Description: The family of this 75-nucleotide sequence from Thrips palmi is "HDV ribozyme from F. prausnitzii". The match comes from Rfam's covariance-model search (45 bits). Rfam 15.1 lists 3,803 matches to the family in 91 species. The literature on the family includes a 2009 paper in Science by Webb et al., "Widespread occurrence of self-cleaving ribozymes". Lineage of the source: Eukaryota > Bilateria > Mandibulata > Terebrantia > Thrips.

RNA sequence: GGUCUGCGUAGGAAUUCUCCCUCCACGUGGGGCAGACCGGGCAACGGAUGAAACCCACAUCCGGCUAAAGAGUGC
Numbered sequence: 001g002g003u004c005u006g007c008g009u010a011g012g013a014a015u016u017c018u019c020c021c022u023c024c025a026c027g028u029g030g031g032g033c034a035g036a037c038c039g040g041g042c043a044a045c046g047g048a049u050g051a052a053a054c055c056c057a058c059a060u061c062c063g064g065c066u067a068a069a070g071a072g073u074g075c
Stems, first nucleotide, its partner, number of pairs: 001038007019031003045063005